[Rfam]
The record is a 121-nucleotide RNA sequence from Pasteurella multocida, which matches "Ribosomal S15 leader" in Rfam. Its Rfam clan is "Ribosomal Protein S15 Leader clan". The literature on the family includes a 1996 paper in Biochimie by Benard et al., "Pseudoknot and translational control in the expression of the S15 ribosomal protein". The family's consensus secondary structure is taken from published work. Rfam links the family to the GO term regulation of translation, ncRNA-mediated. The E. coli Ribosomal S15 gene 5' UTR can form two alternative structures. One that is a series of three hairpins, The other includes a pseudoknot. This structure causes translational regulation of the S15 protein.
RNA sequence: UGUCGUAGCUGGAUUAGAGAUCGGCUAGCGAUGUAUUUUUAACUUAACUUUUAGGAGUUAUCAAAUGUCUCUAAGUACAGAAAAAAAAGCAGCGAUCGUUGCUGAAUUUGGUCGUGAUGCA
Numbered sequence: 001u002g003u004c005g006u007a008g009c010u011g012g013a014u015u016a017g018a019g020a021u022c023g024g025c026u027a028g029c030g031a032u033g034u035a036u037u038u039u040u041a042a043c044u045u046a047a048c049u050u051u052u053a054g055g056a057g058u059u060a061u062c063a064a065a066u067g068u069c070u071c072u073a074a075g076u077a078c079a080g081a082a083a084a085a086a087a088a089g090c091a092g093c094g095a096u097c098g099u100u101g102c103u104g105a106a107u108u109u110g111g112u113c114g115u116g117a118u119g120c121a
Stems, first nucleotide, its partner, number of pairs: 007026006050075003054072004